[Rfam]
RNA sequence: UAUAUUUGCGACUUGAUACGAGAAACGUAUUAAUACAUAAAAAUUAUUAAAACAAUAUUGGCAUG
Numbered sequence: 001u002a003u004a005u006u007u008g009c010g011a012c013u014u015g016a017u018a019c020g021a022g023a024a025a026c027g028u029a030u031u032a033a034u035a036c037a038u039a040a041a042a043a044u045u046a047u048u049a050a051a052a053c054a055a056u057a058u059u060g061g062c063a064u065g
Stems, first nucleotide, its partner, number of pairs: 014032006

This 65-nucleotide sequence from Kordia jejudonensis belongs to the Rfam family "S15-Flavobacteria ribosomal protein leader". The family's RNA type in Rfam is cis-regulatory leader. NCBI's taxonomy places the organism under Bacteria, Pseudomonadati, Flavobacteriales, Flavobacteriaceae, Kordia. On this family, see Eckert and Weinberg, BMC Microbiol 2020: "Discovery of 20 novel ribosomal leader candidates in bacteria and archaea".